RNA: Cyano-1 RNA
Organism: Prochlorococcus marinus
RNA sequence: UUGUGUGUAGGAGAGGUUUUAUUAAAUCAGUGGAAACAAGGAAACACUCGAUUUAUUAGAACCAAUUU
Numbered sequence: 001u002u003g004u005g006u007g008u009a010g011g012a013g014a015g016g017u018u019u020u021a022u023u024a025a026a027u028c029a030g031u032g033g034a035a036a037c038a039a040g041g042a043a044a045c046a047c048u049c050g051a052u053u054u055a056u057u058a059g060a061a062c063c064a065a066u067u068u
Base pairs, nucleotide, nucleotide: 015063016062017061018060019059021056022055027051028050030047031046032045